[Rfam]
RNA: Small nucleolar RNA SNORD45
Organism: Cettia cetti
RNA sequence: GGUCUGGGAUGAGUUUUGGCAUGUAUUAUCUGAUUACAGAUUUGAAGAUUAUAAUUUUAGCUCUGUAAUUACUCUGAGACUGA
Numbered sequence: 001g002g003u004c005u006g007g008g009a010u011g012a013g014u015u016u017u018g019g020c021a022u023g024u025a026u027u028a029u030c031u032g033a034u035u036a037c038a039g040a041u042u043u044g045a046a047g048a049u050u051a052u053a054a055u056u057u058u059a060g061c062u063c064u065g066u067a068a069u070u071a072c073u074c075u076g077a078g079a080c081u082g083a
Base pairs, nucleotide, nucleotide: 001081002080003079004078